[Rfam]
Record summary
Shown here is a 37-nucleotide RNA sequence from Grantiella picta, a member of the family "L31-Firmicutes ribosomal protein leader". NCBI's taxonomy places the organism under Eukaryota, Dipnotetrapodomorpha, Sauria, Meliphagidae, Grantiella. The base pairs follow the family's consensus structure, which is taken from published work. Rfam classes the family as a cis-regulatory leader. For this family Rfam cites "Discovery of 20 novel ribosomal leader candidates in bacteria and archaea" (Eckert and Weinberg, BMC Microbiol, 2020).
RNA sequence: CUCUGUGAGAGGGAAAAGAUUUCUCAGGGCAAAGGAG
Numbered sequence: 001c002u003c004u005g006u007g008a009g010a011g012g013g014a015a016a017a018g019a020u021u022u023c024u025c026a027g028g029g030c031a032a033a034g035g036a037g
Base pairs, nucleotide, nucleotide: 001029002028003027004026005025008022009021010020